[Rfam]
RNA: permuted transfer-messenger RNA
RNA sequence: GAUGCUAAACGCCCUGCAGAAUAGGCGUUGCGGACCCGGGGGCGGUACCCGGCGCCUCCACCAUAUACGGGGGCGAAACAGGAUCGACGCGCGUAGUAAAGGCAGGAUCUGCAUCCGGCAUUGUACCACCGUUAUCGGGCUAAAUUUUUGAAUGCGAACGAUAAUCGCACUCAGGUUGCUCUCGCUGCCUAA
Numbered sequence: 001g002a003u004g005c006u007a008a009a010c011g012c013c014c015u016g017c018a019g020a021a022u023a024g025g026c027g028u029u030g031c032g033g034a035c036c037c038g039g040g041g042g043c044g045g046u047a048c049c050c051g052g053c054g055c056c057u058c059c060a061c062c063a064u065a066u067a068c069g070g071g072g073g074c075g076a077a078a079c080a081g082g083a084u085c086g087a088c089g090c091g092c093g094u095a096g097u098a099a100a101g102g103c104a105g106g107a108u109c110u111g112c113a114u115c116c117g118g119c120a121u122u123g124u125a126c127c128a129c130c131g132u133u134a135u136c137g138g139g140c141u142a143a144a145u146u147u148u149u150g151a152a153u154g155c156g157a158a159c160g161a162u163a164a165u166c167g168c169a170c171u172c173a174g175g176u177u178g179c180u181c182u183c184g185c186u187g188c189c190u191a192a
Stems, first nucleotide, its partner, number of pairs: 001115005014105004026093003030090003036052005053075007116131003
Dot-bracket structure: (((((........((((........(((.(((...(((((.......)))))(((((((.........)))))))............))))))........)))).....)))))(((..........))).............................................................